[Rfam]
RNA sequence: UUUCUUCCAGACCCUUGUCAUUCUCUCGCCCUGUGAAUUCUAAACAACUGGACGGAGAACUGAUAAGGGCUUGUGGGAAA
Numbered sequence: 001u002u003u004c005u006u007c008c009a010g011a012c013c014c015u016u017g018u019c020a021u022u023c024u025c026u027c028g029c030c031c032u033g034u035g036a037a038u039u040c041u042a043a044a045c046a047a048c049u050g051g052a053c054g055g056a057g058a059a060c061u062g063a064u065a066a067g068g069g070c071u072u073g074u075g076g077g078a079a080a
Stems, first nucleotide, its partner, number of pairs: 012069009021059006029051002
The record is an 80-nucleotide RNA from Sitophilus oryzae, which matches "mir-184 microRNA precursor family" in Rfam. Gene Ontology terms of the family: gene silencing by miRNA and RISC complex. Taxonomically the source falls in Sitophilus (Eukaryota, Neoptera, Aparaglossata, Coleoptera). The family has 66 seed sequences and 948 matches in Rfam 15.1.